RNA: Makes More Granules Regulator RNA (mmgR)
RNA sequence: AACAAUUGCCUUUCAGGCAUCCUCUCCCAAAACUUUCCAGCCCGGCAGGCAACUGCCGGGCUAUUUUUUUGCCUGCG
Numbered sequence: 001a002a003c004a005a006u007u008g009c010c011u012u013u014c015a016g017g018c019a020u021c022c023u024c025u026c027c028c029a030a031a032a033c034u035u036u037c038c039a040g041c042c043c044g045g046c047a048g049g050c051a052a053c054u055g056c057c058g059g060g061c062u063a064u065u066u067u068u069u070u071g072c073c074u075g076c077g
Stems, first nucleotide, its partner, number of pairs: 008018004039062009